[Rfam]
RNA: Xanthine riboswitch aptamer (NMT1 RNA)
RNA sequence: GCGCAGAGUAGAAGCGUUCAGCCCGGUGCAAGUUUUCGAAUUUGUUGCACCCGCGGCAGGAAAUUGCUCUUUUA
Number, nucleotide and partner (000 for none) at each position: 001g000002c000003g000004c000005a070006g069007a068008g067009u066010a065011g000012a000013a000014g000015c059016g000017u000018u061019c060020a000021g057022c056023c055024c053025g052026g051027u000028g000029c000030a000031a000032g000033u000034u000035u000036u000037c000038g000039a000040a000041u000042u000043u000044g000045u000046u000047g000048c000049a000050c000051c026052c025053g024054c000055g023056g022057c021058a000059g015060g019061a018062a000063a000064u000065u010066g009067c008068u007069c006070u005071u000072u000073u000074a000